[Rfam]
RNA sequence: GACGCCAGACAAAAUAAGGAUUGACAGAUUGAGAGCUCUUUCUUGAUUUUUUGGGUGGUGGUGCAUGGCCGUUCUUAGUUGGUAAGCUUUUACAGCCCUCCGAGUUAUGAUGUUCGAGUGCUAACUGUUUCUCUAGGUGGAGUGAUUUGUCUGCUUAAUUGCGAUAACGAACGAGACCUUAACCUGCUAAAUAGCCCGGUCAGCUUUGGCUGGCCGCUGGCUUCUUAGAGGGACUAUCGGCUCAAGCCGAUGGAAGUUUGAGGCAAUAACAGGUCACUGCAGGCCUGUGGCGUCUGCAC
Numbered sequence: 001g002a003c004g005c006c007a008g009a010c011a012a013a014a015u016a017a018g019g020a021u022u023g024a025c026a027g028a029u030u031g032a033g034a035g036c037u038c039u040u041u042c043u044u045g046a047u048u049u050u051u052u053g054g055g056u057g058g059u060g061g062u063g064c065a066u067g068g069c070c071g072u073u074c075u076u077a078g079u080u081g082g083u084a085a086g087c088u089u090u091u092a093c094a095g096c097c098c099u100c101c102g103a104g105u106u107a108u109g110a111u112g113u114u115c116g117a118g119u120g121c122u123a124a125c126u127g128u129u130u131c132u133c134u135a136g137g138u139g140g141a142g143u144g145a146u147u148u149g150u151c152u153g154c155u156u157a158a159u160u161g162c163g164a165u166a167a168c169g170a171a172c173g174a175g176a177c178c179u180u181a182a183c184c185u186g187c188u189a190a191a192u193a194g195c196c197c198g199g200u201c202a203g204c205u206u207u208g209g210c211u212g213g214c215c216g217c218u219g220g221c222u223u224c225u226u227a228g229a230g231g232g233a234c235u236a237u238c239g240g241c242u243c244a245a246g247c248c249g250a251u252g253g254a255a256g257u258u259u260g261a262g263g264c265a266a267u268a269a270c271a272g273g274u275c276a277c278u279g280c281a282g283g284c285c286u287g288u289g290g291c292g293u294c295u296g297c298a299c
Base pairs, nucleotide, nucleotide: 001294002293003292004291005289010053011052012051013050014049023042024041026039027038028037057286058285060284062282067278068274069273070272071270072269073268078172079171080170082168083167084148085147086146152163153162154161178262179261180260181259183231184230185229187228188227189226190225193222194221195220196219234253235252236251237250238249239248240247241246
Annotation:
Eukaryotic small subunit ribosomal RNA: a 299-nucleotide part of an RNA from Ramalina farinacea. Taxonomically the source falls in Ramalina (Eukaryota, Dikarya, Ascomycota, Ramalinaceae). The family's consensus secondary structure is taken from published work. On this family, see Yusupov et al., Science 2001: "Crystal structure of the ribosome at 5.5 A resolution".